[Rfam]
RNA sequence: AUUCCCUAUGAUGGUUUAACCAUGCUAAUACUGAUGUCCUUGACUGAAAUAAUGUUAAGUUACUGAGGGAUUA
Numbered sequence: 001a002u003u004c005c006c007u008a009u010g011a012u013g014g015u016u017u018a019a020c021c022a023u024g025c026u027a028a029u030a031c032u033g034a035u036g037u038c039c040u041u042g043a044c045u046g047a048a049a050u051a052a053u054g055u056u057a058a059g060u061u062a063c064u065g066a067g068g069g070a071u072u073a
Base pairs, nucleotide, nucleotide: 001072003070004069005068

Rfam assigns this 73-nucleotide sequence from Brassica oleracea to the family "Small nucleolar RNA snoR53Y". The family's RNA type in Rfam is C/D-box small nucleolar RNA. A reference for the family is Brown et al. (2001), "Multiple snoRNA gene clusters from Arabidopsis", RNA. The organism belongs to Brassica oleracea, within Eukaryota. It scores 68 bits against the family's covariance model.